This 81-nucleotide RNA from Anolis carolinensis belongs to the Rfam family "mir-194 microRNA precursor family". For this family Rfam cites "Reduced accumulation of specific microRNAs in colorectal neoplasia" (Michael et al., Mol Cancer Res, 2003). Gene Ontology terms of the family: RISC complex and miRNA-mediated post-transcriptional gene silencing. It is one of the family's seed sequences.

RNA sequence: CAGUGUCGUCAAGUGUAACAGCAACUCCAUGUGGAAUAAGUAGAUUUCCAGUGGAGGUGCUGUUACUUUUGAAGCUACUGA
Numbered sequence: 001c002a003g004u005g006u007c008g009u010c011a012a013g014u015g016u017a018a019c020a021g022c023a024a025c026u027c028c029a030u031g032u033g034g035a036a037u038a039a040g041u042a043g044a045u046u047u048c049c050a051g052u053g054g055a056g057g058u059g060c061u062g063u064u065a066c067u068u069u070u071g072a073a074g075c076u077a078c079u080g081a
Stems, first nucleotide, its partner, number of pairs: 009072003015066008025056006032050003